[Rfam]
A member of the RNA family "Small nucleolar RNA snR32" from Lachancea dasiensis, 189 nucleotides long. Its family is annotated with nucleolus and RNA processing in the Gene Ontology. It is annotated as an H/ACA-box small nucleolar RNA.

RNA sequence: AACAUCAUUUUAUAUCGCUCACACUGGCCCUAUAUUCUAUAUUCAGCGGAGAAAGACCACGUUCGAGUUUCUCCAGGUUUUUGCGGGGCCGGUAAGAAGCGUAGACCAAAUUAUAGAGCGUUGCUGGGCGCCUGGUGUUGAUUUUCUUCGGAAAAUAGGAGACACUGGGAAUCAGCUGUUUCUACAUGA
Numbered sequence: 001a002a003c004a005u006c007a008u009u010u011u012a013u014a015u016c017g018c019u020c021a022c023a024c025u026g027g028c029c030c031u032a033u034a035u036u037c038u039a040u041a042u043u044c045a046g047c048g049g050a051g052a053a054a055g056a057c058c059a060c061g062u063u064c065g066a067g068u069u070u071c072u073c074c075a076g077g078u079u080u081u082u083g084c085g086g087g088g089c090c091g092g093u094a095a096g097a098a099g100c101g102u103a104g105a106c107c108a109a110a111u112u113a114u115a116g117a118g119c120g121u122u123g124c125u126g127g128g129c130g131c132c133u134g135g136u137g138u139u140g141a142u143u144u145u146c147u148u149c150g151g152a153a154a155a156u157a158g159g160a161g162a163c164a165c166u167g168g169g170a171a172u173c174a175g176c177u178g179u180u181u182c183u184a185c186a187u188g189a
Stems, first nucleotide, its partner, number of pairs: 016101003023093009037046002048074004053069002116182002118179003131169002135165005142155005